Description
The record is a 218-nucleotide RNA from Nonomuraea sp., which matches "Actinobacteria sRNA Ms_IGR-5" in Rfam.
RNA sequence: ACGCGGAAAGGAGGUGGUCCGAAUAAUGGAUAGUCAUAGUCGGGCUAGCGAGGUGGUUGUCCGCUAACGCUGCGGACUCGUUGUCUCGUGGUCGUUCAGCGAAUCCGAGGCAACCACCGGGGCCCCUGGCAGCCGGAGGGCGGGAUGACGCAUCCCGUCCGUGGUCCAUCCGGCCCGCCCGCAUCAGCAGGCGGAGUGUCGCCCGGGGCCCUUUUUCA
Numbered sequence: 001a002c003g004c005g006g007a008a009a010g011g012a013g014g015u016g017g018u019c020c021g022a023a024u025a026a027u028g029g030a031u032a033g034u035c036a037u038a039g040u041c042g043g044g045c046u047a048g049c050g051a052g053g054u055g056g057u058u059g060u061c062c063g064c065u066a067a068c069g070c071u072g073c074g075g076a077c078u079c080g081u082u083g084u085c086u087c088g089u090g091g092u093c094g095u096u097c098a099g100c101g102a103a104u105c106c107g108a109g110g111c112a113a114c115c116a117c118c119g120g121g122g123c124c125c126c127u128g129g130c131a132g133c134c135g136g137a138g139g140g141c142g143g144g145a146u147g148a149c150g151c152a153u154c155c156c157g158u159c160c161g162u163g164g165u166c167c168a169u170c171c172g173g174c175c176c177g178c179c180c181g182c183a184u185c186a187g188c189a190g191g192c193g194g195a196g197u198g199u200c201g202c203c204c205g206g207g208g209c210c211c212u213u214u215u216u217c218a
Stems, first nucleotide, its partner, number of pairs: 013061006062101004066096003070091002074087001119212008128203003133194002
Dot-bracket structure: ............((((((.....................................))))))(((((((.((..(............)..))..))).)))).................((((((((.(((..((..........................................................))......))).))))))))......
The organism belongs to Nonomuraea, within Bacteria. Rfam classes the family as a small RNA.